[Rfam]
A member of the RNA family "FMN riboswitch aptamer (RFN element)" from Urinicoccus massiliensis, 115 nucleotides long.
RNA sequence: GAGAAUCUUCAGGGCGAGGUGUAAUUCCUCACCGGUGGUGAUAGUCCACGAGUCGCAAGACUGAAUCGGUGUAAUUCCGAUACCGACGGUAUAGUCCGGAUGAAAGAAGGAUCUU
Numbered sequence: 001g002a003g004a005a006u007c008u009u010c011a012g013g014g015c016g017a018g019g020u021g022u023a024a025u026u027c028c029u030c031a032c033c034g035g036u037g038g039u040g041a042u043a044g045u046c047c048a049c050g051a052g053u054c055g056c057a058a059g060a061c062u063g064a065a066u067c068g069g070u071g072u073a074a075u076u077c078c079g080a081u082a083c084c085g086a087c088g089g090u091a092u093a094g095u096c097c098g099g100a101u102g103a104a105a106g107a108a109g110g111a112u113c114u115u
Base pairs, nucleotide, nucleotide: 003113004112006110007109008108009107010106017029018028019027031095032094033085034084035049036048037047038046044083045082052061053060054059065081066080067079068078069077087098088097089096
It scores 114 bits against the family's covariance model.